A member of the RNA family "SAM riboswitch aptamer (S box leader)" from Exiguobacterium artemiae, 104 nucleotides long.
RNA sequence: GAUAUAUCAAGAGUGGACGAGAGACCUGGCUCUAGGACUCCACGGCAACCUGCCGAUCGGCAAGGUGCUCCGACCAGCAAAGCAGUUGCUUUGGAUGAUACACA
Numbered sequence: 001g002a003u004a005u006a007u008c009a010a011g012a013g014u015g016g017a018c019g020a021g022a023g024a025c026c027u028g029g030c031u032c033u034a035g036g037a038c039u040c041c042a043c044g045g046c047a048a049c050c051u052g053c054c055g056a057u058c059g060g061c062a063a064g065g066u067g068c069u070c071c072g073a074c075c076a077g078c079a080a081a082g083c084a085g086u087u088g089c090u091u092u093g094g095a096u097g098a099u100a101c102a103c104a
Base pairs, nucleotide, nucleotide: 003102005100006099007098008097013043014042015041016040017039021032022031023030026077027076028075029074044069045068046067047066049065050064051062052061053060054059073096078093079092080091081090082089083088
Rfam links the family to the GO term regulation of gene expression.